Shown here is a 76-nucleotide RNA sequence from Ornithorhynchus anatinus, a member of the family "mir-216 microRNA precursor family". For this family Rfam cites "Identification of novel chicken microRNAs and analysis of their genomic organization" (Shao et al., Gene, 2008). It is one of the family's seed sequences. Clan: mir-216 clan.
RNA sequence: AAUCGGCUUAAUCUCAGCUGGCAACUGUGAGAUGCUAACCAAUUCUCCCACAGUGGCAUCUGGGAUUAUGCUAAAC
Dot-bracket structure: ..(.(((.(((((((((...(((..((((.(...............).)))).).))..))))))))).))).)..
Numbered sequence: 001a002a003u004c005g006g007c008u009u010a011a012u013c014u015c016a017g018c019u020g021g022c023a024a025c026u027g028u029g030a031g032a033u034g035c036u037a038a039c040c041a042a043u044u045c046u047c048c049c050a051c052a053g054u055g056g057c058a059u060c061u062g063g064g065a066u067u068a069u070g071c072u073a074a075a076c
Stems, first nucleotide, its partner, number of pairs: 003074001005072003009068009021057002023054001026052004031047001